[Rfam]
This 97-nucleotide RNA sequence from Marinomonas sp. S3726 belongs to the Rfam family "Bacterial small signal recognition particle RNA". NCBI's taxonomy places the organism under Bacteria, Pseudomonadota, Gammaproteobacteria, Oceanospirillaceae, Marinomonas. Rfam's curators write: The signal recognition particle (SRP) is a universally conserved ribonucleoprotein involved in the co-translational targeting of proteins to membranes.

RNA sequence: UGCUGGUCCUCUCGCAACAUGAAGUCGUUAAUCUGGUCAGGUCCGGAAGGAAGCAGCCACAGCGAUGGAUUUGUGUGCCGAGAUGCGGCUGGUGGAA
Numbered sequence: 001u002g003c004u005g006g007u008c009c010u011c012u013c014g015c016a017a018c019a020u021g022a023a024g025u026c027g028u029u030a031a032u033c034u035g036g037u038c039a040g041g042u043c044c045g046g047a048a049g050g051a052a053g054c055a056g057c058c059a060c061a062g063c064g065a066u067g068g069a070u071u072u073g074u075g076u077g078c079c080g081a082g083a084u085g086c087g088g089c090u091g092g093u094g095g096a097a
Stems, first nucleotide, its partner, number of pairs: 004091005010083005015075001017074003021070001024066006034059004042051003